A member of the RNA family "raiA RNA" from Lancefieldella parvula, 255 nucleotides long. The sequence is in the family's curated seed alignment.

[Rfam]
RNA sequence: UCUUUUCAGGUCUGUGGUUGCGAAGUUCUCUAUGAGCUUCUAGUCCAUGACAGACGAGGUCAAAGGGAUCCACGUAAGUUUAUGUGUGCGCACGUAAACGAUCAUGGCUCGUCCUAGAAGUAAGCCGUACCGCCUGUUAUAUAAAUGAGACAAAGGGUCUCGCAGGCGAGAGAGCUAUUAGUGGAGCUACUGCGGUAGUAAAGCAAACGUUCCAGUAUGCGAGUGUGGGGUCAAAUACCAGGUCAGCUGAAAAGA
Numbered sequence: 001u002c003u004u005u006u007c008a009g010g011u012c013u014g015u016g017g018u019u020g021c022g023a024a025g026u027u028c029u030c031u032a033u034g035a036g037c038u039u040c041u042a043g044u045c046c047a048u049g050a051c052a053g054a055c056g057a058g059g060u061c062a063a064a065g066g067g068a069u070c071c072a073c074g075u076a077a078g079u080u081u082a083u084g085u086g087u088g089c090g091c092a093c094g095u096a097a098a099c100g101a102u103c104a105u106g107g108c109u110c111g112u113c114c115u116a117g118a119a120g121u122a123a124g125c126c127g128u129a130c131c132g133c134c135u136g137u138u139a140u141a142u143a144a145a146u147g148a149g150a151c152a153a154a155g156g157g158u159c160u161c162g163c164a165g166g167c168g169a170g171a172g173a174g175c176u177a178u179u180a181g182u183g184g185a186g187c188u189a190c191u192g193c194g195g196u197a198g199u200a201a202a203g204c205a206a207a208c209g210u211u212c213c214a215g216u217a218u219g220c221g222a223g224u225g226u227g228g229g230g231u232c233a234a235a236u237a238c239c240a241g242g243u244c245a246g247c248u249g250a251a252a253a254g255a
Stems, first nucleotide, its partner, number of pairs: 001255009012246003015240004047226003050060001053113006069107002074102001079097002105233001126219005131168007172212004181204002188197003